[Rfam]
RNA: Guanidine-I riboswitch aptamer
RNA sequence: UAAAUAGUUUUCUAGGGUUCCGCAAUUUAUUUGAUAGUUAUGUUUUUAGAUAAUUUAUUCUAAUGUUAAUAUGGAGUAAUAUAUUUAAUUAAAGCAAAUAGCUUAUUAAGAUAAUUGGACUGGUCCGAGAGAAAACCCACAAUAUUUUUGUGGCCACGGAGGGAUAAAAGCCCGGGAGGA
Numbered sequence: 001u002a003a004a005u006a007g008u009u010u011u012c013u014a015g016g017g018u019u020c021c022g023c024a025a026u027u028u029a030u031u032u033g034a035u036a037g038u039u040a041u042g043u044u045u046u047u048a049g050a051u052a053a054u055u056u057a058u059u060c061u062a063a064u065g066u067u068a069a070u071a072u073g074g075a076g077u078a079a080u081a082u083a084u085u086u087a088a089u090u091a092a093a094g095c096a097a098a099u100a101g102c103u104u105a106u107u108a109a110g111a112u113a114a115u116u117g118g119a120c121u122g123g124u125c126c127g128a129g130a131g132a133a134a135a136c137c138c139a140c141a142a143u144a145u146u147u148u149u150g151u152g153g154c155c156a157c158g159g160a161g162g163g164a165u166a167a168a169a170g171c172c173c174g175g176g177a178g179g180a
Stems, first nucleotide, its partner, number of pairs: 007136006015126002020123002022120001023117005137153006155175001157178001161173003